RNA: Small nucleolar RNA R44/J54/Z268 family
RNA sequence: UUAGCAGAUGACGAGAAUCGAGACAAGGUGUCUGCAGCGCCCCUCGAUCCGAGUCGGGGAGCGCGAUAGCAUGAUGACUCCGUCUAGGGGAAUCUCUGAUGCAAG
Dot-bracket structure: .(.(((.............................................................................................))).).